The family of this 98-nucleotide sequence from Malus baccata is "MIR2275 microRNA precursor family".

RNA sequence: AAGUCGUAUGUGAGAAUUGGAGGGGACUAAACAAAUUGAACUUCUUGAUCGGAAAUGCUUAAUUUGUUUAGUUUCCUCCAAUAUCUUAUGUCUGACUU
Numbered sequence: 001a002a003g004u005c006g007u008a009u010g011u012g013a014g015a016a017u018u019g020g021a022g023g024g025g026a027c028u029a030a031a032c033a034a035a036u037u038g039a040a041c042u043u044c045u046u047g048a049u050c051g052g053a054a055a056u057g058c059u060u061a062a063u064u065u066g067u068u069u070a071g072u073u074u075c076c077u078c079c080a081a082u083a084u085c086u087u088a089u090g091u092c093u094g095a096c097u098u
Stems, first nucleotide, its partner, number of pairs: 004095003008091001011088004016082006023075008032066004